[Rfam]
RNA: mir-399 microRNA precursor family
RNA sequence: ACAUGAAUUACAGGGUAUAUCUCCUUUGGCACGGGGUAAGCUAGCUUGUAAGAUGCAGAAUAGCCGUGCGUGCCAAAGGAGAAUUGCCCUGCGAUUCCCGG
Numbered sequence: 001a002c003a004u005g006a007a008u009u010a011c012a013g014g015g016u017a018u019a020u021c022u023c024c025u026u027u028g029g030c031a032c033g034g035g036g037u038a039a040g041c042u043a044g045c046u047u048g049u050a051a052g053a054u055g056c057a058g059a060a061u062a063g064c065c066g067u068g069c070g071u072g073c074c075a076a077a078g079g080a081g082a083a084u085u086g087c088c089c090u091g092c093g094a095u096u097c098c099c100g101g
Stems, first nucleotide, its partner, number of pairs: 005097005011091006017084002021081004027075007035067001
Dot-bracket structure: ....(((((.((((((((..((((..(((((((.(...............................).)))))))..)))).)).)))))).)))))....